[Rfam]
RNA sequence: CGGCUGUAAUGGUCAUUCUCAUCUGAGAGGUGCAUUGAAACCGUAACCUCUUUCCCUUCCAAUUGCCGAAGCGAGGGCCCAGUUCGAAUCCGGUGGUGCCCGACCAACUCAUGUGGGUAACCCAUGAUGAAGGCGGGCUUAAGCAAUGAAGUCGACCGUCGAGGGAAGCAAUUCUGCAGACAUGGCUUCACCAUUGGAUGGCGGUGCUGGACUACCCUCGCUUCGGUUUGGGAUAGGCGUUAUGGACUGAUGAAUCAACCAGGUAUCUCUU
Numbered sequence: 001c002g003g004c005u006g007u008a009a010u011g012g013u014c015a016u017u018c019u020c021a022u023c024u025g026a027g028a029g030g031u032g033c034a035u036u037g038a039a040a041c042c043g044u045a046a047c048c049u050c051u052u053u054c055c056c057u058u059c060c061a062a063u064u065g066c067c068g069a070a071g072c073g074a075g076g077g078c079c080c081a082g083u084u085c086g087a088a089u090c091c092g093g094u095g096g097u098g099c100c101c102g103a104c105c106a107a108c109u110c111a112u113g114u115g116g117g118u119a120a121c122c123c124a125u126g127a128u129g130a131a132g133g134c135g136g137g138c139u140u141a142a143g144c145a146a147u148g149a150a151g152u153c154g155a156c157c158g159u160c161g162a163g164g165g166a167a168g169c170a171a172u173u174c175u176g177c178a179g180a181c182a183u184g185g186c187u188u189c190a191c192c193a194u195u196g197g198a199u200g201g202c203g204g205u206g207c208u209g210g211a212c213u214a215c216c217c218u219c220g221c222u223u224c225g226g227u228u229u230g231g232g233a234u235a236g237g238c239g240u241u242a243u244g245g246a247c248u249g250a251u252g253a254a255u256c257a258a259c260c261a262g263g264u265a266u267c268u269c270u271u
Stems, first nucleotide, its partner, number of pairs: 002014003021264005029256003033252003038248001041245007049237003053233004066226012079210005084204003088199009098138005104132001107128001109127005115122002139143001147190007158181003165174003
Fungal signal recognition particle RNA: a 271-nucleotide RNA from Lasiodiplodia theobromae.
The family's consensus secondary structure is taken from published work.
The match comes from Rfam's covariance-model search (145 bits).